[Rfam]
RNA sequence: GGCCAGGAGGAAAGAAAAAGUAUAAACUAAAACAUCUAGUAUGGGCAAGCAGAGAGUUGGAAAGAUUCGCAAUUAACCCUAGCC
Numbered sequence: 001g002g003c004c005a006g007g008a009g010g011a012a013a014g015a016a017a018a019a020g021u022a023u024a025a026a027c028u029a030a031a032a033c034a035u036c037u038a039g040u041a042u043g044g045g046c047a048a049g050c051a052g053a054g055a056g057u058u059g060g061a062a063a064g065a066u067u068c069g070c071a072a073u074u075a076a077c078c079c080u081a082g083c084c
Stems, first nucleotide, its partner, number of pairs: 001084003005080003
Annotation
The family of this 84-nucleotide RNA sequence from Lentivirus humimdef1 is "HIV gag stem loop 3 (GSL3)". It is annotated as a cis-regulatory element. Rfam's curators put it in the seed alignment. The literature on the family includes a 2004 paper in J Mol Biol by Damgaard et al., "RNA interactions in the 5' region of the HIV-1 genome". From the family's description: This family consists of several HIV gag stem loop 3 (GSL3) sequences. Pairs were carried over by alignment from the consensus structure, which was predicted with PFOLD. Its family is annotated with viral RNA genome packaging in the Gene Ontology.